[Rfam]
RNA: Small nucleolar RNA snoR8a
RNA sequence: AAUGUUGCAGUGAUUAUAAAAAAUUCCUCGUUCUGAAUGCCAUAUCUAUGGCAUGACAGACAAAUUUACAAUAGAAUAUGAGCAACG
Numbered sequence: 001a002a003u004g005u006u007g008c009a010g011u012g013a014u015u016a017u018a019a020a021a022a023a024u025u026c027c028u029c030g031u032u033c034u035g036a037a038u039g040c041c042a043u044a045u046c047u048a049u050g051g052c053a054u055g056a057c058a059g060a061c062a063a064a065u066u067u068a069c070a071a072u073a074g075a076a077u078a079u080g081a082g083c084a085a086c087g
Stems, first nucleotide, its partner, number of pairs: 003087002006084002